[Rfam]
RNA sequence: CUCAUUAAGGUGGGUGGAAUAGUAUAACAAUAGCACGUUGUUAUAAUAUCCCACCUACCCUGAUGUG
Numbered sequence: 001c002u003c004a005u006u007a008a009g010g011u012g013g014g015u016g017g018a019a020u021a022g023u024a025u026a027a028c029a030a031u032a033g034c035a036c037g038u039u040g041u042u043a044u045a046a047u048a049u050c051c052c053a054c055c056u057a058c059c060c061u062g063a064u065g066u067g
Base pairs, nucleotide, nucleotide: 003065004064005063006062007061009059010058011057012056013055014054015053016052017051019049020048021047023045024044025043026042027041028040029039030038031037

This 67-nucleotide RNA sequence from Tupaia belangeri belongs to the Rfam family "mir-2985 microRNA precursor family". RNAs can be post-transcriptional modified, in micro RNAs (miRNA) editing of pre-mRNA is a common process. Gene Ontology terms of the family: miRNA-mediated post-transcriptional gene silencing and RISC complex.